[Rfam]
RNA: Group II catalytic intron D1-D4-3
RNA sequence: UCCCUCGUGAGAUGGAAUCUCUAUAGAGGUCCAGGCGUAUCUCUGGUCUGACGAACAAAACUCAUCAUAACGUUAUUCAUGGGGAUUAGGCCGCCGAACAUUGUUGAACUCCCUUACCUACACUGAACUCAUGAAUAUUACAUGUGGCAAACACAUGGAGAGAAAGAGUGCGUU
Numbered sequence: 001u002c003c004c005u006c007g008u009g010a011g012a013u014g015g016a017a018u019c020u021c022u023a024u025a026g027a028g029g030u031c032c033a034g035g036c037g038u039a040u041c042u043c044u045g046g047u048c049u050g051a052c053g054a055a056c057a058a059a060a061c062u063c064a065u066c067a068u069a070a071c072g073u074u075a076u077u078c079a080u081g082g083g084g085a086u087u088a089g090g091c092c093g094c095c096g097a098a099c100a101u102u103g104u105u106g107a108a109c110u111c112c113c114u115u116a117c118c119u120a121c122a123c124u125g126a127a128c129u130c131a132u133g134a135a136u137a138u139u140a141c142a143u144g145u146g147g148c149a150a151a152c153a154c155a156u157g158g159a160g161a162g163a164a165a166g167a168g169u170g171c172g173u174u
Stems, first nucleotide, its partner, number of pairs: 001016003005012002028174003032170001036166001040161006046152002049149002062147003066144002072139001074137001076135007083112003089105003